[Rfam]
RNA sequence: GAGAAGAAUCUGUAAAGCUCAGGAGGGAUAGCGCCAUGAUGAUCACAUUCGUUAUCUAUUUUUUGGCGCUAUCCAUCCUGAGUUUCAUUGGCUCUUCUU
Numbered sequence: 001g002a003g004a005a006g007a008a009u010c011u012g013u014a015a016a017g018c019u020c021a022g023g024a025g026g027g028a029u030a031g032c033g034c035c036a037u038g039a040u041g042a043u044c045a046c047a048u049u050c051g052u053u054a055u056c057u058a059u060u061u062u063u064u065g066g067c068g069c070u071a072u073c074c075a076u077c078c079u080g081a082g083u084u085u086c087a088u089u090g091g092c093u094c095u096u097c098u099u
Stems, first nucleotide, its partner, number of pairs: 010090001016084009026074010

MIR390 microRNA precursor family: a 99-nucleotide RNA sequence.